[Rfam]
Nucleotides: 140
Stems, first nucleotide, its partner, number of pairs: 003064005009058002019050003023042006076130001079128001086125001093118002096115003
Number, partner (000 for none) and nucleotide at each position: 001000a002000a003064c004063c005062a006061a007060g008000g009058u010057g011000a012000u013000u014000c015000c016000c017000u018000c019050u020049c021048c022000a023042g024041g025040g026039g027038g028037c029000c030000u031000a032000c033000u034000a035000g036000u037028g038027c039026c040025c041024c042023u043000c044000u045000u046000c047000a048021g049020g050019a051000a052000a053000g054000u055000a056000g057010c058009a059000a060007c061006u062005u063004g064003g065000a066000a067000u068000a069000a070000a071000a072000u073000c074000u075000g076130g077000c078000a079128u080000g081000c082000c083000u084000c085000a086125g087000g088000u089000u090000u091000u092000c093118a094117g095000g096115g097114g098113a099000g100000a101000g102000u103000c104000a105000g106000a107000u108000g109000u110000g111000u112000a113098u114097u115096u116000c117094c118093u119000u120000u121000g122000c123000c124000u125086u126000u127000g128079g129000c130076u131000g132000c133000c134000u135000a136000c137000a138000u139000a140000a